Notes:
This 129-nucleotide RNA sequence from Mangrovibacter sp. MFB070 belongs to the Rfam family "RtT RNA". Its family is annotated with cellular response to amino acid starvation in the Gene Ontology. Rfam's curators write: This family represents a bacterial cis-regulatory element known as RtT RNA. The exact function of RtT is unknown although it is thought that it may be involved in changing the cellular response in relation to amino acid starvation. Lineage of the source: Bacteria > Pseudomonadati > Enterobacterales > Enterobacteriaceae > Mangrovibacter. The match comes from Rfam's covariance-model search (49 bits). By type it is a cis-regulatory element. On this family, see Bosl and Kersten, Nucleic Acids Res 1991: "A novel RNA product of the tyrT operon of Escherichia coli".
[Rfam]
RNA sequence: CCGUGAUUCAUUAAGGGAGGGUGAGAACCCUCGCCAGGGUUCGACUGAUACCGCAGGUAUCAGGACAACCUGUGCAACAGGUUGCCCCGCAGGGGUGAGCGUAGCGAAUCAAUCCCUCCCUCACCAUUC
Dot-bracket structure: ..............((((((((.........(.((....(.((....(.........).......((((((.......))))))...)).).)))................).))))))).........